[Rfam]
RNA sequence: GAGCGUGCUCCGGGGUCGGUGCAAUUCCGAACCGGCGGUGACAGUCCGCGACCCACCUGCGAUGCGGGUGGUUGACCCGGUGGAACUCCGGGACCGACGGUGAAAGUCCGGAUGGGAGGCAGCGCGCGG
Dot-bracket structure: ..((((((((......(((.......))).[[((((((.....[[))))...((...............))....(((((.......)))))]])).(((.....]]))).......)..)))))))..
Numbered sequence: 001g002a003g004c005g006u007g008c009u010c011c012g013g014g015g016u017c018g019g020u021g022c023a024a025u026u027c028c029g030a031a032c033c034g035g036c037g038g039u040g041a042c043a044g045u046c047c048g049c050g051a052c053c054c055a056c057c058u059g060c061g062a063u064g065c066g067g068g069u070g071g072u073u074g075a076c077c078c079g080g081u082g083g084a085a086c087u088c089c090g091g092g093a094c095c096g097a098c099g100g101u102g103a104a105a106g107u108c109c110g111g112a113u114g115g116g117a118g119g120c121a122g123c124g125c126g127c128g129g
Stems, first nucleotide, its partner, number of pairs: 003127007010118001017029003031107002033096002035049004044094002053071002076092005098110003